Shown here is a 75-nucleotide RNA from Halogeometricum limi, a member of the family "tRNA". Transfer RNA (tRNA) molecules are approximately 80 nucleotides in length. Gene Ontology term of the family: triplet codon-amino acid adaptor activity. Pairs were carried over by alignment from the consensus structure, which is taken from published work. The family's RNA type in Rfam is transfer RNA.
[Rfam]
RNA sequence: GGGUUGGUGGUCUAGCCAGGUUAUGACGGCUCCUUCACACGGAGCAGGUCGGCAGUUCGAAUCUGCCCCAACCCA
Numbered sequence: 001g002g003g004u005u006g007g008u009g010g011u012c013u014a015g016c017c018a019g020g021u022u023a024u025g026a027c028g029g030c031u032c033c034u035u036c037a038c039a040c041g042g043a044g045c046a047g048g049u050c051g052g053c054a055g056u057u058c059g060a061a062u063c064u065g066c067c068c069c070a071a072c073c074c075a
Stems, first nucleotide, its partner, number of pairs: 001074007010027003029045005051067005